[Rfam]
RNA sequence: AACUGAUAAAGGCAAACUUGCCGAAAGGCAAGGGCGCAAAAUCACCGGUCUAAAGAGGUUUUUCCUCCAUGACAGCGGGAUUGCCAGA
Numbered sequence: 001a002a003c004u005g006a007u008a009a010a011g012g013c014a015a016a017c018u019u020g021c022c023g024a025a026a027g028g029c030a031a032g033g034g035c036g037c038a039a040a041a042u043c044a045c046c047g048g049u050c051u052a053a054a055g056a057g058g059u060u061u062u063u064c065c066u067c068c069a070u071g072a073c074a075g076c077g078g079g080a081u082u083g084c085c086a087g088a
Base pairs, nucleotide, nucleotide: 012037013036017032018031019030020029021028022027040082041081042080043079045078046077047076048073049072050071055067056066057065058064
The family of this 88-nucleotide RNA from Methylobacillus sp. MM3 is "c-di-GMP-I riboswitch aptamer". Pairs were carried over by alignment from the consensus structure, which is taken from published work. The organism belongs to Methylobacillus, within Bacteria.